The record is a 536-nucleotide part of an RNA from Sulfurihydrogenibium azorense, which matches "Bacterial small subunit ribosomal RNA" in Rfam.
Lineage of the source: Bacteria > Pseudomonadati > Aquificota > Aquificales > Sulfurihydrogenibium azorense.

[Rfam]
RNA sequence: UCUUUGGAGAGUUUGAUCCUGGCUCAGCGCGAACGUUGGCGGCGUGCCUAACACAUGCAAGUCGUGGGGCAGCAGGCUAUUACCUUCGGGUAAUAGUGCUGGCGACCGGCAAACGGGUGAGUAACGCGUAGCUAACCUACCCAUAGGUUGGGGAUAACCAUCCGAAAGGGUGGCUAAUACCCAAUAAUGAGGAGACUCCAAAGCCCUUUUGGGCGCCUAUGGAUGGGGCUGCGUCCCAUCAGCUAGUUGGUGAGGUAAUGGCUCACCAAGGCUACGACGGGUAACCGGUCUGAGAGGAUGAUCGGUCACAGCGGGACUGAGACACGGCCCGCACCCCUACGGGGGGCAGCAGUGGGGAAUAUUGGGCAAUGGCCGAAAGGCUGACCCAGCAACGCCGCGUGGUGGAUGAAGCCCUUCGGGGUGUAAACACCUUUUCUGGGGGAAGAUAAUGACGGUACCCCAGGAAUAAGGGACGGCUAACUACGUGCCAGCAGCCGCGGUAAUACGUAGGUCCCGAACGUUGCGCGAAAUUACUG
Numbered sequence: 001u002c003u004u005u006g007g008a009g010a011g012u013u014u015g016a017u018c019c020u021g022g023c024u025c026a027g028c029g030c031g032a033a034c035g036u037u038g039g040c041g042g043c044g045u046g047c048c049u050a051a052c053a054c055a056u057g058c059a060a061g062u063c064g065u066g067g068g069g070c071a072g073c074a075g076g077c078u079a080u081u082a083c084c085u086u087c088g089g090g091u092a093a094u095a096g097u098g099c100u101g102g103c104g105a106c107c108g109g110c111a112a113a114c115g116g117g118u119g120a121g122u123a124a125c126g127c128g129u130a131g132c133u134a135a136c137c138u139a140c141c142c143a144u145a146g147g148u149u150g151g152g153g154a155u156a157a158c159c160a161u162c163c164g165a166a167a168g169g170g171u172g173g174c175u176a177a178u179a180c181c182c183a184a185u186a187a188u189g190a191g192g193a194g195a196c197u198c199c200a201a202a203g204c205c206c207u208u209u210u211g212g213g214c215g216c217c218u219a220u221g222g223a224u225g226g227g228g229c230u231g232c233g234u235c236c237c238a239u240c241a242g243c244u245a246g247u248u249g250g251u252g253a254g255g256u257a258a259u260g261g262c263u264c265a266c267c268a269a270g271g272c273u274a275c276g277a278c279g280g281g282u283a284a285c286c287g288g289u290c291u292g293a294g295a296g297g298a299u300g301a302u303c304g305g306u307c308a309c310a311g312c313g314g315g316a317c318u319g320a321g322a323c324a325c326g327g328c329c330c331g332c333a334c335c336c337c338u339a340c341g342g343g344g345g346g347c348a349g350c351a352g353u354g355g356g357g358a359a360u361a362u363u364g365g366g367c368a369a370u371g372g373c374c375g376a377a378a379g380g381c382u383g384a385c386c387c388a389g390c391a392a393c394g395c396c397g398c399g400u401g402g403u404g405g406a407u408g409a410a411g412c413c414c415u416u417c418g419g420g421g422u423g424u425a426a427a428c429a430c431c432u433u434u435u436c437u438g439g440g441g442g443a444a445g446a447u448a449a450u451g452a453c454g455g456u457a458c459c460c461c462a463g464g465a466a467u468a469a470g471g472g473a474c475g476g477c478u479a480a481c482u483a484c485g486u487g488c489c490a491g492c493a494g495c496c497g498c499g500g501u502a503a504u505a506c507g508u509a510g511g512u513c514c515c516g517a518a519c520g521u522u523g524c525g526c527g528a529a530a531u532u533a534c535u536g
Base pairs, nucleotide, nucleotide: 009025010024011023012022013021027526028525029524030523032522033521034520035519036518037517039398040397041396042395043394044393045391046390047356052354053353054352056351057350058349061110062109063108066107067106069103070102078095079094080093081092082091083090084089117309118308119307126234127233128232129231130230131229132228133227136226137225141222142221143220144219145218146217147216149183150182151181152180158173159172160171161170162169163168189198190197191196203214204213205212235281236280237279242272243271244270247269248268249267250266251265252264253263254262284306285305286304287303288299289298290297291296311332312331313330314329315328334345335344336343337342362388364387365386366385370383371382372381373380374379401431402430403429404428411422412421413420414419436463437462438461439460440459441458445453470515471514472513473512474511481510482509483508484507485506491498492497
Background:
The match comes from Rfam's covariance-model search (1550 bits).